[Rfam]
RNA sequence: GUGUGCAUGACCCUGCUUGGUAGUGGGCUUUGGCUUCAAACCAAAGGGGGAUGAAAUACGCCCAGCAGUUCGAUUCUGCCUUGCGCAC
Numbered sequence: 001g002u003g004u005g006c007a008u009g010a011c012c013c014u015g016c017u018u019g020g021u022a023g024u025g026g027g028c029u030u031u032g033g034c035u036u037c038a039a040a041c042c043a044a045a046g047g048g049g050g051a052u053g054a055a056a057u058a059c060g061c062c063c064a065g066c067a068g069u070u071c072g073a074u075u076c077u078g079c080c081u082u083g084c085g086c087a088c
Stems, first nucleotide, its partner, number of pairs: 001088007009080001012027006028046006048063003065079004
The family of this 88-nucleotide RNA from Phaeodactylum tricornutum is "Selenocysteine transfer RNA". The match comes from Rfam's covariance-model search (66 bits).